[Rfam]
RNA sequence: UGAGACAAGAAGAAGCACCCGCUUCUCACCUGCUCGACGCACAUUGUGUAGUUGACUGGUUCCGAACUCUUUUUAAUAGAACUUUGGAGACGUGUGGGUGCAAUGGUACCGACACUUUUUUUAAUGA
Numbered sequence: 001u002g003a004g005a006c007a008a009g010a011a012g013a014a015g016c017a018c019c020c021g022c023u024u025c026u027c028a029c030c031u032g033c034u035c036g037a038c039g040c041a042c043a044u045u046g047u048g049u050a051g052u053u054g055a056c057u058g059g060u061u062c063c064g065a066a067c068u069c070u071u072u073u074u075a076a077u078a079g080a081a082c083u084u085u086g087g088a089g090a091c092g093u094g095u096g097g098g099u100g101c102a103a104u105g106g107u108a109c110c111g112a113c114a115c116u117u118u119u120u121u122u123a124a125u126g127a
Base pairs, nucleotide, nucleotide: 011026012025013024014023015022016021028060029059030058036053037052038051041049042048093114094113095112097110098109099108100107101106

The family of this 127-nucleotide RNA from Oceanobacillus zhaokaii is "Ribosomal protein L20 leader". Rfam describes the family as follows. This family is a putative r-protein leader autoregulatory structure found in B. subtilis and other low-GC Gram-positive bacteria. It is located in the 5' untranslated regions of mRNAs encoding initiation factor 3 followed by ribosomal proteins L35 and L20 (infC-rpmI-rplT). By type it is a cis-regulatory leader. The base pairs follow the family's consensus structure, which was predicted with CMfinder. For this family Rfam cites "Diverse mechanisms for regulating ribosomal protein synthesis in Escherichia coli" (Zengel and Lindahl, Prog Nucleic Acid Res Mol Biol, 1994). It scores 69 bits against the family's covariance model.